Background: The family of this 148-nucleotide RNA from Nyssa sinensis is "MIR390 microRNA precursor family". It scores 94 bits against the family's covariance model. Gene Ontology terms of the family: RISC complex and miRNA-mediated post-transcriptional gene silencing.
RNA sequence: UAGGAGGAUCUGUAAAGCUCAGGAGGGAUAGCGCCACGGAUAGUGAUGAAGAUGAUGAGUGGUGGUUGGGUUUAAGACCUAAUUUGUCAGGGUGUGUUUAAUAUCUCGCCAGUGGCGCUAUCUAUCCUGAGUUUCACGGGUUCUUCUU
Numbered sequence: 001u002a003g004g005a006g007g008a009u010c011u012g013u014a015a016a017g018c019u020c021a022g023g024a025g026g027g028a029u030a031g032c033g034c035c036a037c038g039g040a041u042a043g044u045g046a047u048g049a050a051g052a053u054g055a056u057g058a059g060u061g062g063u064g065g066u067u068g069g070g071u072u073u074a075a076g077a078c079c080u081a082a083u084u085u086g087u088c089a090g091g092g093u094g095u096g097u098u099u100a101a102u103a104u105c106u107c108g109c110c111a112g113u114g115g116c117g118c119u120a121u122c123u124a125u126c127c128u129g130a131g132u133u134u135c136a137c138g139g140g141u142u143c144u145u146c147u148u
Base pairs, nucleotide, nucleotide: 010139016133017132018131019130020129021128022127023126024125026123027122028121029120030119031118032117033116034115035114036113037112
Dot-bracket structure: .........(.....(((((((((.((((((((((((..........................................................................)))))))))))).))))))))).....).........
Lineage of the source: Eukaryota > Embryophyta > Spermatophyta > Pentapetalae > Nyssa.